[Rfam]
RNA sequence: GGUCAUGAGUGACAGCGCGAAGCCCCAGCUGGCUGUCCGGCAACCCUCCGUCCGUGGCGGGGUGCCCUGGGUGAGGACCGGGUCGUCACGGCAAGCCGUCCGUGCGACAAGCGCGGACG
Numbered sequence: 001g002g003u004c005a006u007g008a009g010u011g012a013c014a015g016c017g018c019g020a021a022g023c024c025c026c027a028g029c030u031g032g033c034u035g036u037c038c039g040g041c042a043a044c045c046c047u048c049c050g051u052c053c054g055u056g057g058c059g060g061g062g063u064g065c066c067c068u069g070g071g072u073g074a075g076g077a078c079c080g081g082g083u084c085g086u087c088a089c090g091g092c093a094a095g096c097c098g099u100c101c102g103u104g105c106g107a108c109a110a111g112c113g114c115g116g117a118c119g
Stems, first nucleotide, its partner, number of pairs: 001079004009038001011037006021030002039066003044062003048057002082108004087104005
Dot-bracket structure: ((((....(.((((((....((......)).)))))))(((..(((.((......))..))).))).........))))..((((.(((((........)))))))))...........
RNA: SAM (S-adenosyl methionine) riboswitch aptamer